[Rfam]
RNA sequence: GCUGGUGCUUUCAGAUAGAUUCAGGGCAACCUGGGCGGCUGGCGGUGGAUUGCAAACACCGGGAGCCGUCUACAUA
Numbered sequence: 001g002c003u004g005g006u007g008c009u010u011u012c013a014g015a016u017a018g019a020u021u022c023a024g025g026g027c028a029a030c031c032u033g034g035g036c037g038g039c040u041g042g043c044g045g046u047g048g049a050u051u052g053c054a055a056a057c058a059c060c061g062g063g064a065g066c067c068g069u070c071u072a073c074a075u076a
Stems, first nucleotide, its partner, number of pairs: 022033004034070007043061005
The family of this 76-nucleotide RNA is "COG2827 RNA". By type it is a small RNA. Pairs were carried over by alignment from the consensus structure, which is taken from published work.